This 133-nucleotide sequence from Sus scrofa belongs to the Rfam family "U11 spliceosomal RNA".
RNA sequence: AAUUAGGGCUUCUGUUGUGAGUGGCACAAGUAGGGCAGCUUGCUUGCUCUUUUUAUGGAAUAGACAUCAAGGGAUUUAGGAAGCAUCAUUUUUUGGACUUGGACAGCUGGAGAUCAUUGGCUGUGGCGCCCUU
Numbered sequence: 001a002a003u004u005a006g007g008g009c010u011u012c013u014g015u016u017g018u019g020a021g022u023g024g025c026a027c028a029a030g031u032a033g034g035g036c037a038g039c040u041u042g043c044u045u046g047c048u049c050u051u052u053u054u055a056u057g058g059a060a061u062a063g064a065c066a067u068c069a070a071g072g073g074a075u076u077u078a079g080g081a082a083g084c085a086u087c088a089u090u091u092u093u094u095g096g097a098c099u100u101g102g103a104c105a106g107c108u109g110g111a112g113a114u115c116a117u118u119g120g121c122u123g124u125g126g127c128g129c130c131c132u133u
Base pairs, nucleotide, nucleotide: 008084009083010082011081012080013026014025015024016023017022028054029053030052032050033049034048035047036046037045038044056079058077059076060075061074101131102130104128106127107126108125109124112122114120115119
Rfam classes the family as a spliceosomal small nuclear RNA.